[Rfam]
RNA sequence: GCUGCCGCUCGCACCCGCUGCUGGCACCUGGUGCUGGUCCUGAUAGCUUGGUGCCGUCAGUGGGUGCAAGCGGUGGCUG
Numbered sequence: 001g002c003u004g005c006c007g008c009u010c011g012c013a014c015c016c017g018c019u020g021c022u023g024g025c026a027c028c029u030g031g032u033g034c035u036g037g038u039c040c041u042g043a044u045a046g047c048u049u050g051g052u053g054c055c056g057u058c059a060g061u062g063g064g065u066g067c068a069a070g071c072g073g074u075g076g077c078u079g
Stems, first nucleotide, its partner, number of pairs: 004074006011067010022056007
Dot-bracket structure: ...((((((.((((((((((.(((((((.....................))))))).)))))))))).)))))).....
RNA: mir-9198 microRNA precursor family
Organism: Myotis brandtii